Shown here is a 45-nucleotide RNA from Salmonella enterica, a member of the family "Salmonella enterica sRNA STnc310". The sequence is in the family's curated seed alignment. The base pairs follow the family's consensus structure, which was predicted with RNAalifold.

Nucleotides: 045
Stems, first nucleotide, its partner, number of pairs: 002019004027045001029043004033038001
Number, partner (000 for none) and nucleotide at each position: 001000a002019u003018u004017g005016u006000g007000a008000c009000a010000u011000g012000u013000u014000a015000a016005a017004c018003a019002a020000a021000a022000a023000c024000g025000c026000c027045c028000g029043g030042c031041a032040g033038g034000u035000g036000u037000a038033c039000g040032c041031u042030g043029c044000c045027g